[Rfam]
RNA: mraW RNA
RNA sequence: AAGAAAUGAAGUAGCCUGGUAUCCAGCCGUGUUAUAGCUCCUGAGUCUCUUCCGUCCUCUCUGCAAGCUCCCGAGACUCGGGGGCUAUAAUACGGAUGGGCACCAGGCUAGAAAUGAAGGAGUAC
Numbered sequence: 001a002a003g004a005a006a007u008g009a010a011g012u013a014g015c016c017u018g019g020u021a022u023c024c025a026g027c028c029g030u031g032u033u034a035u036a037g038c039u040c041c042u043g044a045g046u047c048u049c050u051u052c053c054g055u056c057c058u059c060u061c062u063g064c065a066a067g068c069u070c071c072c073g074a075g076a077c078u079c080g081g082g083g084g085c086u087a088u089a090a091u092a093c094g095g096a097u098g099g100g101c102a103c104c105a106g107g108c109u110a111g112a113a114a115u116g117a118a119g120g121a122g123u124a125c
Stems, first nucleotide, its partner, number of pairs: 012110005018104002022100004027095023